Rfam assigns this 156-nucleotide RNA from Populus tomentosa to the family "MIR2912 microRNA precursor family". A search with the family's covariance model found it, with a score of 97 bits. Rfam links the family to the GO terms RISC complex and miRNA-mediated post-transcriptional gene silencing.
RNA sequence: UCUAGAACUCAAGAUAUGGGCUGAACACUAAAUAGUGUCUAGGCUGCAGGACAGCUUCGGACUUCUUUGUUGUUCCUAUAUUUUGGACUUGAAAACGGCCUUCUUAGAUCUUGGUGUCCGAAUGAAAGUUGUAGGCCUAUGUUUUACCUUUCCAUC
Number, nucleotide and partner (000 for none) at each position: 001u000002c000003u154004a000005g152006a151007a150008c000009u146010c000011a145012a144013g143014a142015u141016a140017u139018g138019g137020g136021c134022u133023g132024a000025a130026c000027a129028c128029u127030a000031a000032a000033u000034a000035g123036u122037g000038u000039c000040u000041a000042g118043g117044c000045u000046g000047c000048a112049g111050g110051a109052c000053a000054g105055c000056u000057u000058c000059g100060g099061a000062c098063u097064u000065c000066u000067u000068u092069g000070u000071u000072g088073u087074u086075c000076c000077u000078a000079u000080a000081u000082u000083u000084u000085g000086g074087a073088c072089u000090u000091g000092a068093a000094a000095a000096c000097g063098g062099c060100c059101u000102u000103c000104u000105u054106a000107g000108a000109u051110c050111u049112u048113g000114g000115u000116g000117u043118c042119c000120g000121a000122a036123u035124g000125a000126a000127a029128g028129u027130u025131g000132u023133a022134g021135g000136c020137c019138u018139a017140u016141g015142u014143u013144u012145u011146a009147c000148c000149u000150u007151u006152c005153c000154a003155u000156c000